[Rfam]
Nucleotides: 154
Stems, first nucleotide, its partner, number of pairs: 011140004018038007039135006049057002058120003066096004099114004
Number, partner (000 for none) and nucleotide at each position: 001000c002000g003000c004000g005000g006000g007000u008000c009000g010000c011140c012139g013138c014137c015000g016000a017000a018038u019037c020036g021035g022034c023033u024032u025000u026000g027000u028000c029000g030000g031000g032024g033023a034022g035021c036020c037019g038018a039135g040134c041133c042132g043131g044130g045000g046000a047000a048000c049057c050056a051000a052000c053000c054000c055000g056050u057049g058120g059119g060118g061000u062000g063000a064000a065000u066096c067095c068094g069093g070000u071000c072000c073000g074000g075000g076000u077000g078000u079000g080000c081000g082000g083000a084000g085000c086000a087000u088000g089000c090000c091000c092000g093069c094068u095067g096066g097000u098000a099114g100113g101112g102111c103000a104000g105000c106000u107000u108000c109000g110000a111102g112101c113100c114099c115000g116000a117000a118060c119059c120058c121000g122000u123000c124000a125000g126000c127000u128000c129000a130044c131043c132042c133041g134040g135039c136000a137014g138013g139012c140011g141000g142000u143000c144000g145000g146000a147000g148000c149000a150000g151000a152000c153000g154000a